Rfam assigns this 67-nucleotide sequence from Pontibacillus chungwhensis to the family "Bacillaceae-1 RNA". Taxonomically the source falls in Pontibacillus chungwhensis (Bacteria, Bacillota, Bacillaceae, Pontibacillus). The family's consensus secondary structure is taken from published work. The family's RNA type in Rfam is small RNA.

RNA sequence: GAAAGAGGAAGUUCGAUUAAAACCGUCACGUCAAUAGCCAACGUCGAACGACCCCACAUCGUGUGGG
Numbered sequence: 001g002a003a004a005g006a007g008g009a010a011g012u013u014c015g016a017u018u019a020a021a022a023c024c025g026u027c028a029c030g031u032c033a034a035u036a037g038c039c040a041a042c043g044u045c046g047a048a049c050g051a052c053c054c055c056a057c058a059u060c061g062u063g064u065g066g067g
Base pairs, nucleotide, nucleotide: 011049012048013047014046015045016044017043025038026037053067054066055065056064057063